[Rfam]
RNA sequence: CCGUCAACUGCGGGAGAGACUGGCCACGCGCCAGCGCCGAAGGAGCAACCGCCCCGGAAACUCUCAGGCCAACGGACCGCAGUUGGGUC
Numbered sequence: 001c002c003g004u005c006a007a008c009u010g011c012g013g014g015a016g017a018g019a020c021u022g023g024c025c026a027c028g029c030g031c032c033a034g035c036g037c038c039g040a041a042g043g044a045g046c047a048a049c050c051g052c053c054c055c056g057g058a059a060a061c062u063c064u065c066a067g068g069c070c071a072a073c074g075g076a077c078c079g080c081a082g083u084u085g086g087g088u089c
Stems, first nucleotide, its partner, number of pairs: 006084008020034004036069003039065002043063003049057002
Notes:
Shown here is an 89-nucleotide sequence from Devosia sp. I507, a member of the family "Glycine riboswitch aptamer".